[Rfam]
RNA sequence: UAGAUCGGUGUCGGCGACCCGCUCGGUAUGCCGAUUGCACACAUCAUGGCAUCCGGUAUGACCGGUCUUCGCGCAGGCGGCGACCUUGUCGCACGUAUGC
Numbered sequence: 001u002a003g004a005u006c007g008g009u010g011u012c013g014g015c016g017a018c019c020c021g022c023u024c025g026g027u028a029u030g031c032c033g034a035u036u037g038c039a040c041a042c043a044u045c046a047u048g049g050c051a052u053c054c055g056g057u058a059u060g061a062c063c064g065g066u067c068u069u070c071g072c073g074c075a076g077g078c079g080g081c082g083a084c085c086u087u088g089u090c091g092c093a094c095g096u097a098u099g100c
Stems, first nucleotide, its partner, number of pairs: 007038001010035007017027003073092002076089001079086002
A member of the RNA family "Pyrrolysine insertion sequence mtbB" from Methanimicrococcus blatticola, 100 nucleotides long. Taxonomically the source falls in Methanimicrococcus (Archaea, Methanobacteriati, Methanomicrobia, Methanosarcinales). Gene Ontology term of the family: pyrrolysine incorporation. By type it is a cis-regulatory element. The family's consensus secondary structure was predicted with WAR. A reference for the family is Theil Have et al. (2013), "Effects of using coding potential, sequence conservation and mRNA structure conservation for predicting pyrroly-sine containing genes", BMC Bioinformatics.